A member of the RNA family "mir-24 microRNA precursor family" from Rattus norvegicus, 68 nucleotides long.
For this family Rfam cites "microRNAs: tiny regulators with great potential" (Ambros, Cell, 2001).
This family represents the microRNA (miRNA) mir-24 family. miRNAs are transcribed as ~70nt precursors (modelled here) and subsequently processed by the Dicer enzyme to give a ~22nt product.
The source organism's lineage runs through Eukaryota, Teleostomi, Amniota, Eutheria and Rattus.
RNA sequence: GACUCCUGUUCCUGCUGAACUGAGCCAGUGCACUGGAAUCAACUGUUUCAGCUCAGUAGGCACAGGAG
Numbered sequence: 001g002a003c004u005c006c007u008g009u010u011c012c013u014g015c016u017g018a019a020c021u022g023a024g025c026c027a028g029u030g031c032a033c034u035g036g037a038a039u040c041a042a043c044u045g046u047u048u049c050a051g052c053u054c055a056g057u058a059g060g061c062a063c064a065g066g067a068g
Stems, first nucleotide, its partner, number of pairs: 003068004008063002011060003015056004020051004026045004

The base pairs follow the family's consensus structure, which was predicted with RNAalifold.